The record is a 397-nucleotide RNA from Thalassococcus profundi, which matches "Bacterial RNase P class A" in Rfam.
The family's consensus secondary structure is taken from published work.
By type it is a ribozyme.
It scores 296 bits against the family's covariance model.
RNA sequence: GCGGAGGGCCGGAUGGCCGCGGCGGGGAUUGCGAUCCUCGUCGAGGAAAGUCCGGACUCCCUGAAGCAACGGUGCCGGGUAACGCCCGGGCAGGGCAACCUGACGGACAGCGCCACAGAGAACAGACCGCCCCGGCCUUGGCCGGGGUAAGGGUGAAACGGUGGGGUAAGAGCCCACCACGGGCCUGGCAACAGGACCGGUGAUGGCAAGCCCCACCGGGAGCAAUGCCAAAUAGGGACCCCGCGCGGGGCUGAUCCCUUCGGGGAUAUCGCCGCAGGGCCGCUUCAGCCCGAGGGGUCCGGGUUGGCAGCUUGAGCGGCGCAGCGAUGCGUCGCCCAGAGGAAUGGUCAUCGCCCCUAUCGGGGUACAGAAUCCGGCUUACAGGCCCUCCGCGCGC
Number, nucleotide and partner (000 for none) at each position: 001g393002c392003g391004g390005a389006g388007g387008g386009c385010c384011g382012g352013a351014u350015g349016g348017c347018c346019g000020c043021g042022g041023c040024g039025g038026g037027g036028a035029u000030u000031g000032c000033g000034a000035u028036c027037c026038u025039c024040g023041u022042c021043g020044a000045g000046g000047a000048a380049a379050g378051u000052c377053c376054g375055g374056a373057c222058u221059c220060c219061c000062u000063g000064a000065a000066g285067c000068a000069a000070c218071g217072g216073u215074g214075c089076c088077g087078g086079g085080u000081a000082a000083c000084g000085c079086c078087c077088g076089g075090g104091c102092a101093g100094g099095g000096c000097a000098a000099c094100c093101u092102g091103a000104c090105g213106g212107a000108c000109a000110g211111c210112g207113c206114c205115a000116c000117a000118g000119a000120g000121a000122a000123c000124a000125g000126a000127c152128c151129g148130c147131c146132c145133c144134g143135g142136c141137c000138u000139u000140g000141g136142c135143c134144g133145g132146g131147g130148u129149a000150a000151g128152g127153g000154u000155g000156a000157a000158a000159c000160g178161g177162u176163g175164g174165g173166g000167u000168a000169a000170g000171a000172g000173c165174c164175c163176a162177c161178c160179a201180c199181g198182g197183g000184c195185c194186u193187g192188g000189c000190a000191a000192c187193a186194g185195g184196a000197c182198c181199g180200g000201u179202g000203a000204u000205g114206g113207c112208a000209a000210g111211c110212c106213c105214c074215a073216c072217c071218g070219g060220g059221a058222g057223c000224a000225a000226u309227g308228c307229c306230a000231a000232a000233u000234a000235g000236g300237g299238a298239c297240c296241c295242c000243g000244c000245g000246c000247g000248g000249g000250g000251c000252u000253g000254a000255u000256c000257c000258c000259u000260u000261c000262g000263g000264g000265g000266a000267u000268a000269u000270c000271g000272c000273c000274g000275c000276a000277g291278g290279g289280c288281c000282g000283c000284u000285u066286c000287a000288g280289c279290c278291c277292g000293a000294g000295g241296g240297g239298u238299c237300c236301g000302g000303g000304u000305u000306g229307g228308c227309a226310g000311c000312u000313u000314g000315a000316g335317c334318g333319g332320c331321g330322c329323a328324g000325c000326g000327a000328u323329g322330c321331g320332u319333c318334g317335c316336c000337c000338a000339g000340a000341g000342g000343a000344a000345u000346g018347g017348u016349c015350a014351u013352c012353g000354c000355c000356c000357c000358u000359a000360u000361c000362g000363g000364g000365g000366u000367a000368c000369a000370g000371a000372a000373u056374c055375c054376g053377g052378c050379u049380u048381a000382c011383a000384g010385g009386c008387c007388c006389u005390c004391c003392g002393c001394g000395c000396g000397c000